[Rfam]
RNA sequence: GGUUGGAUGGCUAAAACGCCAUUUCAAGAUAACAGGCUUCUGGGGUGGGAAGCU
Numbered sequence: 001g002g003u004u005g006g007a008u009g010g011c012u013a014a015a016a017c018g019c020c021a022u023u024u025c026a027a028g029a030u031a032a033c034a035g036g037c038u039u040c041u042g043g044g045g046u047g048g049g050a051a052g053c054u
Base pairs, nucleotide, nucleotide: 003027004026005025006023007022008021009020010019011018035054036053037052038051039050040049041048

The family of this 54-nucleotide sequence from Pseudobacteroides cellulosolvens is "Na+ riboswitch aptamer (DUF1646)". The literature on the family includes a 2022 paper in Nat Chem Biol by White et al., "Na(+) riboswitches regulate genes for diverse physiological processes in bacteria". Taxonomically the source falls in Pseudobacteroides cellulosolvens (Bacteria, Clostridia, Eubacteriales, Oscillospiraceae). The base pairs follow the family's consensus structure, which is taken from published work. Rfam links the family to the GO terms regulation of gene expression and sodium ion binding. It scores 57 bits against the family's covariance model.